[Rfam]
RNA: mir-31 microRNA precursor family
RNA sequence: GUUGGUAAAUUGGCAAGAUGUCGGCAUAGCUGACGUUGAAAAGCGAUUUUAGAGAGCGCUAUGCUGCAUCUAGUCAGUUGUUCAAU
Numbered sequence: 001g002u003u004g005g006u007a008a009a010u011u012g013g014c015a016a017g018a019u020g021u022c023g024g025c026a027u028a029g030c031u032g033a034c035g036u037u038g039a040a041a042a043g044c045g046a047u048u049u050u051a052g053a054g055a056g057c058g059c060u061a062u063g064c065u066g067c068a069u070c071u072a073g074u075c076a077g078u079u080g081u082u083c084a085a086u
Base pairs, nucleotide, nucleotide: 004083005082008079009078010077011076012075013074014073016071017070018069019068020067022066023065024064025063026062027061028060029059030058